[Rfam]
Nucleotides: 345
Stems, first nucleotide, its partner, number of pairs: 001341007010332002012302007020035002023032003040329003044326005049206004056238004061202005066080005081095001082093004096197002101195002103191003119138002121134005146164006166186001167184007210259003213255001220249006231241003266285008
Number, partner (000 for none) and nucleotide at each position: 001341c002340g003339a004338g005337c006336a007335g008000g009000a010332a011331a012302g013301a014300u015299g016298a017297u018296u019000g020035c021034g022000g023032g024031c025030c026000g027000u028000a029000a030025g031024g032023c033000g034021u035020g036000a037000g038000g039000a040329a041328a042327g043000u044326c045325c046324g047323a048322g049206c050205u051204u052203c053000g054000c055000a056238g057237g058236g059235c060000a061202g062201g063200a064199u065198g066080c067079c068078g069077g070076a071000u072000a073000a074000c075000g076070u077069c078068c079067g080066g081095c082093g083092g084091g085090g086000g087000u088000a089000a090085c091084c092083c093082u094000a095081g096197g097196g098000a099000a100000a101195g102194u103191g104190c105189c106000a107000u108000a109000g110000a111000a112000a113000a114000g115000g116000a117000g118000a119138c120137c121134g122133c123132c124131g125130c126000g127000u128000a129000c130125g131124c132123g133122g134121u135000a136000a137120g138119g139000g140000u141000g142000g143000a144000a145000a146164g147163g148162u149161g150160u151159g152000g153000u154000a155000a156000g157000a158000g159151c160150a161149c162148a163147c164146c165000a166186g167184c168183a169182g170181u171180c172179a173178g174000g175000a176000g177000a178173c179172u180171g181170a182169u183168u184167g185000g186166c187000u188000u189105g190104g191103u192000a193000a194102a195101c196097c197096c198065c199064a200063u201062c202061u203052g204051a205050a206049g207000c208000a209000a210259g211258a212257c213255c214000g215000a216000a217000u218000a219000g220249g221248g222247a223246a224245g225244g226000g227000u228000u229000g230000a231241g232240g233239u234000u235059g236058c237057c238056c239233g240232c241231u242000g243000a244225c245224c246223u247222u248221c249220c250000g251000g252000g253000u254000u255213g256000a257212g258211u259210c260000g261000c262000u263000u264000g265000a266285g267284c268283a269282a270281a271280g272279a273278a274000g275000c276000a277000a278273u279272u280271u281270u282269u283268u284267g285266c286000c287000u288000a289000g290000a291000u292000a293000g294000a295000u296018a297017a298016u299015c300014a301013u302012c303000a304000u305000c306000g307000u308000g309000g310000a311000a312000a313000c314000g315000a316000a317000c318000a319000g320000a321000a322048c323047u324046c325045g326044g327042c328041u329040u330000a331011u332010u333000g334000a335007u336006u337005g338004c339003u340002c341001g342000c343000a344000c345000c
This 345-nucleotide sequence from Dialister sp. CAG:588 belongs to the Rfam family "Bacterial RNase P class A". By type it is a ribozyme. The base pairs follow the family's consensus structure, which is taken from published work. Rfam links the family to the GO terms dimeric ribonuclease P complex, tRNA processing and ribonuclease P activity. From the family's description: Ribonuclease P (RNase P) is a ubiquitous endoribonuclease, found in archaea, bacteria and eukarya as well as chloroplasts and mitochondria.